Shown here is a 189-nucleotide RNA sequence from Nocardiopsis sp. JB363, a member of the family "Actinobacteria sRNA Ms_IGR-5".
A search with the family's covariance model found it, with a score of 94 bits.
Lineage of the source: Bacteria > Bacillati > Actinomycetes > Streptosporangiales > Nocardiopsis.
RNA sequence: ACGCAGGAAAGGAGGUGGUCCAGAAGAUGAUUGACCCUAGGACCGGCGAGGUGGCCGUCCGCUAGGACGACGCCGAGCAUUCGCUCGACGUACGUCGUAGGCGAAUCCCAGACGGACACCCGAACCCCGGGCUGUCGGACCUUGUCCGAUCCGACCCUCUCGUAGGAGACGGCCCGGGGUUCGUCCAUG
Numbered sequence: 001a002c003g004c005a006g007g008a009a010a011g012g013a014g015g016u017g018g019u020c021c022a023g024a025a026g027a028u029g030a031u032u033g034a035c036c037c038u039a040g041g042a043c044c045g046g047c048g049a050g051g052u053g054g055c056c057g058u059c060c061g062c063u064a065g066g067a068c069g070a071c072g073c074c075g076a077g078c079a080u081u082c083g084c085u086c087g088a089c090g091u092a093c094g095u096c097g098u099a100g101g102c103g104a105a106u107c108c109c110a111g112a113c114g115g116a117c118a119c120c121c122g123a124a125c126c127c128c129g130g131g132c133u134g135u136c137g138g139a140c141c142u143u144g145u146c147c148g149a150u151c152c153g154a155c156c157c158u159c160u161c162g163u164a165g166g167a168g169a170c171g172g173c174c175c176g177g178g179g180u181u182c183g184u185c186c187a188u189g
Stems, first nucleotide, its partner, number of pairs: 014059006060103004065098001066096004070091003121183013135154005